[Rfam]
RNA: TPP riboswitch aptamer (THI element)
Organism: Fructilactobacillus florum
RNA sequence: AAAUAAAAGUUGGGGUGCCACGAGCUGAGAUUAUACCCAUUGAACCUGAUAUAGUUCGCACUAUCGCAGGAAACUUUCUUUAAUUAGCC
Numbered sequence: 001a002a003a004u005a006a007a008a009g010u011u012g013g014g015g016u017g018c019c020a021c022g023a024g025c026u027g028a029g030a031u032u033a034u035a036c037c038c039a040u041u042g043a044a045c046c047u048g049a050u051a052u053a054g055u056u057c058g059c060a061c062u063a064u065c066g067c068a069g070g071a072a073a074c075u076u077u078c079u080u081u082a083a084u085u086a087g088c089c
Stems, first nucleotide, its partner, number of pairs: 006077005011039004016033001017025002045070004051064004
Dot-bracket structure: .....(((((((((.(((.....)).......)..)))).....((((..((((......))))..))))..)))))............